[Rfam]
RNA sequence: AGGGAUUACGAUGAGGAUUCACAGCUCCCUCUUCCGAAAUUUAUUGAAGAAAUCGGCUGGCAGAAUCGAACCUAUGACUUUUAUUGCCACCACUGAGUAA
Number, nucleotide and partner (000 for none) at each position: 001a000002g000003g000004g000005a000006u100007u099008a098009c097010g000011a000012u000013g000014a000015g000016g000017a000018u000019u000020c000021a000022c000023a000024g000025c000026u000027c000028c000029c000030u000031c000032u000033u000034c000035c000036g000037a000038a000039a000040u000041u000042u000043a000044u000045u000046g000047a000048a000049g000050a000051a000052a000053u000054c000055g000056g000057c000058u000059g000060g000061c000062a000063g000064a000065a000066u000067c000068g000069a000070a000071c000072c000073u000074a000075u000076g000077a000078c000079u000080u000081u000082u000083a000084u000085u000086g000087c000088c000089a000090c000091c000092a000093c000094u000095g000096a000097g009098u008099a007100a006